[Rfam]
RNA sequence: AUGUAAAAUAAGAUAUUUAUAACUUUAUAACAUGAACAGUCGUGAUCUGAUUAUAUCAUCACGUCUUUUUUUGCGCAAUAAGAAAGAACCUGGGAUUUUAUCCAGGUUCUUUUUUUG
Numbered sequence: 001a002u003g004u005a006a007a008a009u010a011a012g013a014u015a016u017u018u019a020u021a022a023c024u025u026u027a028u029a030a031c032a033u034g035a036a037c038a039g040u041c042g043u044g045a046u047c048u049g050a051u052u053a054u055a056u057c058a059u060c061a062c063g064u065c066u067u068u069u070u071u072u073g074c075g076c077a078a079u080a081a082g083a084a085a086g087a088a089c090c091u092g093g094g095a096u097u098u099u100a101u102c103c104a105g106g107u108u109c110u111u112u113u114u115u116u117g
Stems, first nucleotide, its partner, number of pairs: 034072003038064001042060001082113012
The record is a 117-nucleotide RNA from Paenibacillus rhizosphaerae, which matches "Bacillus sRNA ncr1015" in Rfam. By type it is a small RNA. The family's consensus secondary structure is taken from published work. The source organism's lineage runs through Bacteria, Bacillota, Caryophanales, Paenibacillaceae and Paenibacillus. The literature on the family includes a 2010 paper in Nucleic Acids Res by Irnov et al., "Identification of regulatory RNAs in Bacillus subtilis".